The family of this 175-nucleotide sequence from Clostridium sp. HMP27 is "Lysine riboswitch aptamer".
RNA sequence: ACGGACGAUAGAGGUGCGAUAUUUAAGAGUAUCUGUGUGGAUAUAAGCAAUGGGAAACAUAGUGAAAGGAAAUAUUGCCGAAGCGUAUAGCUAAAGCUUUAAGGCUAUAUAGCUGGUUUUAUUCAUAAUAUGAGUAAAACUGUCACAAAGUAAUUUGUGGAGAGCUAUCAUUCAA
Numbered sequence: 001a002c003g004g005a006c007g008a009u010a011g012a013g014g015u016g017c018g019a020u021a022u023u024u025a026a027g028a029g030u031a032u033c034u035g036u037g038u039g040g041a042u043a044u045a046a047g048c049a050a051u052g053g054g055a056a057a058c059a060u061a062g063u064g065a066a067a068g069g070a071a072a073u074a075u076u077g078c079c080g081a082a083g084c085g086u087a088u089a090g091c092u093a094a095a096g097c098u099u100u101a102a103g104g105c106u107a108u109a110u111a112g113c114u115g116g117u118u119u120u121a122u123u124c125a126u127a128a129u130a131u132g133a134g135u136a137a138a139a140c141u142g143u144c145a146c147a148a149a150g151u152a153a154u155u156u157g158u159g160g161a162g163a164g165c166u167a168u169c170a171u172u173c174a175a
Stems, first nucleotide, its partner, number of pairs: 007169005016078009033062006082114003090106001092104001115141011143160007

The source organism's lineage runs through Bacteria, Bacillati, Eubacteriales, Clostridiaceae and Clostridium.
Riboswitches are metabolite binding domains within certain messenger RNAs that serve as precision sensors for their corresponding targets.